Nucleotides: 105
Stems, first nucleotide, its partner, number of pairs: 002104007013043005021032003026081004044073004049069002052065004077097001082094005
Number, partner (000 for none) and nucleotide at each position: 001000u002104u003103c004102u005101u006100a007099u008098c009000u010000a011000g012000a013043g014042a015041g016040g017039u018000g019000g020000a021032g022031g023030g024000a025000u026081a027080u028079g029078g030023c031022c032021c033000u034000g035000u036000g037000a038000a039017a040016c041015c042014u043013c044073a045072g046071c047070a048000g049069c050068a051000g052065g053064u054063c055062u056000g057000a058000c059000a060000a061000c062055a063054g064053a065052u066000a067000c068050u069049g070047u071046g072045c073044u074000a075000a076000u077097u078029c079028c080027a081026u082094c083093g084092g085091u086090u087000c088000a089000u090086a091085g092084c093083c094082g095000g096000c097077a098008g099007a100006u101005a102004a103003g104002a105000u
Notes
The family of this 105-nucleotide sequence from Terribacillus saccharophilus is "SAM riboswitch aptamer (S box leader)". The organism belongs to Terribacillus, within Bacteria. Rfam's curators write: The SAM riboswitch is found upstream of a number of genes which code for proteins involved in methionine or cysteine biosynthesis in Gram-positive bacteria. Pairs were carried over by alignment from the consensus structure, which is taken from published work. A search with the family's covariance model found it, with a score of 81 bits.